Rfam assigns this 57-nucleotide RNA to the family "Plastid-psbA-4 3UTR RNA". About the family: Plastid psbA-4 is a non-coding RNA (ncRNA) present in plastids. It was identified in inverted repeat sequences in the 3 prime untranslate region (3UTR) of photosystem II quinone-binding protein (psbA).
RNA sequence: AUAUAAGGAGCAAUAAACUAUUUCUUGUUCUAUCAAGAGAGUUUAUUGCUCCUUUAU
Numbered sequence: 001a002u003a004u005a006a007g008g009a010g011c012a013a014u015a016a017a018c019u020a021u022u023u024c025u026u027g028u029u030c031u032a033u034c035a036a037g038a039g040a041g042u043u044u045a046u047u048g049c050u051c052c053u054u055u056a057u
Stems, first nucleotide, its partner, number of pairs: 005054011022039006